THF (Tetrahydrofolate) riboswitch aptamer: a 102-nucleotide RNA from Ruminococcus sp. CAG:624. About the family: Tetrahydrofolate (THF) riboswitch was first reported for Ames et al. as an RNA motif in 5' untranslated (5'-UTR)regions of folate transport and biosynthesis genes in Firmicutes genomes. The family's consensus secondary structure is taken from published work. A reference for the family is Trausch et al. (2011), "The structure of a tetrahydrofolate-sensing riboswitch reveals two ligand binding sites in a single aptamer", Structure. The source organism's lineage runs through Bacteria, Clostridia, Eubacteriales, Oscillospiraceae and Ruminococcus.
[Rfam]
RNA sequence: UGAAGAGUAAAAAUACGGGCGUUAAGUGUUGGCUGAACGGGGAGUUGUCGGUCAAACGAAAAAUCCUAUGGAUUUGCGGUUCGUGUUUUGCAUCCCGCUUCA
Numbered sequence: 001u002g003a004a005g006a007g008u009a010a011a012a013a014u015a016c017g018g019g020c021g022u023u024a025a026g027u028g029u030u031g032g033c034u035g036a037a038c039g040g041g042g043a044g045u046u047g048u049c050g051g052u053c054a055a056a057c058g059a060a061a062a063a064u065c066c067u068a069u070g071g072a073u074u075u076g077c078g079g080u081u082c083g084u085g086u087u088u089u090g091c092a093u094c095c096c097g098c099u100u101c102a
Stems, first nucleotide, its partner, number of pairs: 001102005010089010020078003026057002029055008040095003044091001061075004